[Rfam]
RNA sequence: UUUCUCUCCAUUGAGAAAGCUGCUCAUUCACUGUACCGCCCGAAAGCCAUGGGCGAGUAGAGGGGAAAGAGUAGCGAGAGAAAUAUCGCCGAAGUACGUCUCAUACUGGAUUAUCUGUCAUAUAGGUAGUUUGGAUUCUGCGUUUUCGGUACAUCU
Numbered sequence: 001u002u003u004c005u006c007u008c009c010a011u012u013g014a015g016a017a018a019g020c021u022g023c024u025c026a027u028u029c030a031c032u033g034u035a036c037c038g039c040c041c042g043a044a045a046g047c048c049a050u051g052g053g054c055g056a057g058u059a060g061a062g063g064g065g066a067a068a069g070a071g072u073a074g075c076g077a078g079a080g081a082a083a084u085a086u087c088g089c090c091g092a093a094g095u096a097c098g099u100c101u102c103a104u105a106c107u108g109g110a111u112u113a114u115c116u117g118u119c120a121u122a123u124a125g126g127u128a129g130u131u132u133g134g135a136u137u138c139u140g141c142g143u144u145u146u147c148g149g150u151a152c153a154u155c156u
Base pairs, nucleotide, nucleotide: 019075020074022072023071031062032061034059035058037055038054039053040052041051088150089149090148091147092146096143097142098141106134107133108132110130111129112128113127114126115125116124117123118122
RNA: Small nucleolar RNA snR8
Organism: Metschnikowia sp. JCM 33374